This 215-nucleotide sequence from Bacillus pumilus belongs to the Rfam family "SR1 sRNA". Rfam's curators put it in the seed alignment. The source organism's lineage runs through Bacteria, Bacillota, Caryophanales, Bacillaceae and Bacillus pumilus. The family's RNA type in Rfam is small RNA. On this family, see Heidrich et al., Nucleic Acids Res 2007: "In vitro analysis of the interaction between the small RNA SR1 and its primary target ahrC mRNA".
RNA sequence: UGUGAAAUAAAUUAAACGCUUUCAAAUAUUGAAUGAAGAAAAGGGGAAUGUACGUGGGUACAAUUAUUUGUCAAGAUUGCAAUGAGACCAUUGAUCAAUUUGAAAAUGAAAAAGUGACAACACUAUACGGAACGUGUGGUCACUGUCAUUGCUGUGAUGAAGCCUCUGAAUAAAUAAAAAAGCAUGCAGCUCCAUUUGGGGCUGCAUGUUUCUUU
Numbered sequence: 001u002g003u004g005a006a007a008u009a010a011a012u013u014a015a016a017c018g019c020u021u022u023c024a025a026a027u028a029u030u031g032a033a034u035g036a037a038g039a040a041a042a043g044g045g046g047a048a049u050g051u052a053c054g055u056g057g058g059u060a061c062a063a064u065u066a067u068u069u070g071u072c073a074a075g076a077u078u079g080c081a082a083u084g085a086g087a088c089c090a091u092u093g094a095u096c097a098a099u100u101u102g103a104a105a106a107u108g109a110a111a112a113a114g115u116g117a118c119a120a121c122a123c124u125a126u127a128c129g130g131a132a133c134g135u136g137u138g139g140u141c142a143c144u145g146u147c148a149u150u151g152c153u154g155u156g157a158u159g160a161a162g163c164c165u166c167u168g169a170a171u172a173a174a175u176a177a178a179a180a181a182g183c184a185u186g187c188a189g190c191u192c193c194a195u196u197u198g199g200g201g202c203u204g205c206a207u208g209u210u211u212c213u214u215u
Base pairs, nucleotide, nucleotide: 016115017114020112021111022110025107029103030102031101032100033099034098038096039095055090056089057088059086061084062083067082068081141151142150178213180211181210182209183208184207185206186205187204188203189202190201